Shown here is a 164-nucleotide sequence from Luteitalea pratensis, a member of the family "c-di-AMP riboswitch aptamer (ydaO/yuaA leader)".
RNA sequence: GUUGAAAUCACGCCAAAGACGCCCAACCAGCGUCACGGGGGACCCAAGGCGCGAAUGACCGCGCACCGGGGCGAAUUCCGCUGAACUCCUACACGGACCACGCGGAUAGAGCAACUCCAGGCUCGAGCCCGUCAGCUAACCUCGUCGGCGCGUGGAGUCUGUCG
Numbered sequence: 001g002u003u004g005a006a007a008u009c010a011c012g013c014c015a016a017a018g019a020c021g022c023c024c025a026a027c028c029a030g031c032g033u034c035a036c037g038g039g040g041g042a043c044c045c046a047a048g049g050c051g052c053g054a055a056u057g058a059c060c061g062c063g064c065a066c067c068g069g070g071g072c073g074a075a076u077u078c079c080g081c082u083g084a085a086c087u088c089c090u091a092c093a094c095g096g097a098c099c100a101c102g103c104g105g106a107u108a109g110a111g112c113a114a115c116u117c118c119a120g121g122c123u124c125g126a127g128c129c130c131g132u133c134a135g136c137u138a139a140c141c142u143c144g145u146c147g148g149c150g151c152g153u154g155g156a157g158u159c160u161g162u163c164g
Stems, first nucleotide, its partner, number of pairs: 011150004018034005035145006045068001069130003077106004109124004